[Rfam]
RNA sequence: GCUCAAUGAUGUUCUCGCAUGUAUUACCCGAAUGUCAAAUAGUGACGAAAGAACAUGUUAGCUCUAGAAUAACACUGAGAGUAC
Dot-bracket structure: ((((..........................................................................))))..

A member of the RNA family "Small nucleolar RNA SNORD45" from Strongylocentrotus purpuratus, 84 nucleotides long.
The family's RNA type in Rfam is C/D-box small nucleolar RNA.
On this family, see Galardi et al., Mol Cell Biol 2002: "Purified box C/D snoRNPs are able to reproduce site-specific 2'-O-methylation of target RNA in vitro".
Rfam 15.1 lists 1,629 matches to the family in 521 species.
NCBI's taxonomy places the organism under Eukaryota, Metazoa, Euechinoidea, Echinacea, Strongylocentrotus.